[Rfam]
RNA: Lysine riboswitch aptamer
Organism: Romboutsia maritimum
RNA sequence: UAAAUGGGUAGAGGCGCGAUAAAUAUGAGUACUAGUAAUGAGGUAAGCACAAUGACUUACUAGGAAAGGAAAUAUCGCCGAAGUAUAUAACUGAUGCUUUAAGGUUAUAUGUCUGGGUGUACAUAAAAUAUAUGUGCAACUGUCACAAACUUGUUUUUGUGGUGAGCUAUCAUUUAA
Number, nucleotide and partner (000 for none) at each position: 001u000002a000003a000004a000005u000006g000007g171008g170009u169010a168011g167012a000013g000014g000015c000016g078017c077018g076019a075020u074021a073022a000023a000024u070025a000026u000027g000028a000029g000030u000031a000032c063033u062034a061035g060036u059037a058038a057039u000040g000041a000042g000043g000044u000045a000046a000047g000048c000049a000050c000051a000052a000053u000054g000055a000056c000057u038058u037059a036060c035061u034062a033063g032064g000065a000066a000067a000068g000069g000070a024071a000072a000073u021074a020075u019076c018077g017078c016079c000080g000081a000082a114083g113084u111085a110086u109087a108088u107089a106090a105091c104092u103093g000094a000095u000096g000097c000098u000099u000100u000101a000102a000103g092104g091105u090106u089107a088108u087109a086110u085111g084112u000113c083114u082115g141116g140117g000118u138119g137120u136121a135122c134123a133124u132125a131126a000127a000128a000129u000130a000131u125132a124133u123134g122135u121136g120137c119138a118139a000140c116141u115142g000143u162144c161145a160146c159147a158148a157149a156150c000151u000152u000153g000154u000155u000156u149157u148158u147159g146160u145161g144162g143163u000164g000165a000166g000167c011168u010169a009170u008171c007172a000173u000174u000175u000176a000177a000